[Rfam]
The family of this 325-nucleotide part of an RNA from Plasmodium falciparum is "Eukaryotic large subunit ribosomal RNA". Its Rfam clan is "LSU clan". Gene Ontology terms of the family: structural constituent of ribosome and ribosome.

RNA sequence: GAGUCUAGCAAAUGUGCAAGUGUAUAUGAUUCUUUAAACAUUUCUCUUUUUAAUAUACGCAUAAUUAAUGUAAUAUGUUUCUUUAUUGUAGAUUUGUGGUGUUUAAUUUUUAUUAAAUCCCCACUUUGCAUACAAUACCGGUAAGCAAUUAUGCUUUAUUGAGUACGAGCAUAUUUGGUAGGACCCGAGAGGCUUUGAACUAAGCGUGAUGAGAUUGAAGUCAGGCGAAAGUCUGAUGGAGGAUCGAGUUGAUACUGACGUGCAAAUCGUUCAUUUCAAUCACGUUUAGGGGCGAAAGACUAAUCGAAAAGCCUAUUAGCUGGUU
Numbered sequence: 001g002a003g004u005c006u007a008g009c010a011a012a013u014g015u016g017c018a019a020g021u022g023u024a025u026a027u028g029a030u031u032c033u034u035u036a037a038a039c040a041u042u043u044c045u046c047u048u049u050u051u052a053a054u055a056u057a058c059g060c061a062u063a064a065u066u067a068a069u070g071u072a073a074u075a076u077g078u079u080u081c082u083u084u085a086u087u088g089u090a091g092a093u094u095u096g097u098g099g100u101g102u103u104u105a106a107u108u109u110u111u112a113u114u115a116a117a118u119c120c121c122c123a124c125u126u127u128g129c130a131u132a133c134a135a136u137a138c139c140g141g142u143a144a145g146c147a148a149u150u151a152u153g154c155u156u157u158a159u160u161g162a163g164u165a166c167g168a169g170c171a172u173a174u175u176u177g178g179u180a181g182g183a184c185c186c187g188a189g190a191g192g193c194u195u196u197g198a199a200c201u202a203a204g205c206g207u208g209a210u211g212a213g214a215u216u217g218a219a220g221u222c223a224g225g226c227g228a229a230a231g232u233c234u235g236a237u238g239g240a241g242g243a244u245c246g247a248g249u250u251g252a253u254a255c256u257g258a259c260g261u262g263c264a265a266a267u268c269g270u271u272c273a274u275u276u277c278a279a280u281c282a283c284g285u286u287u288a289g290g291g292g293c294g295a296a297a298g299a300c301u302a303a304u305c306g307a308a309a310a311g312c313c314u315a316u317u318a319g320c321u322g323g324u325u
Stems, first nucleotide, its partner, number of pairs: 005181003009177009020060003025055003029051001064071002108135002111132002115127003137164002139161006148152001184323002187320001191313006200289011211277001213245004220237007250273003254270002257268002291301002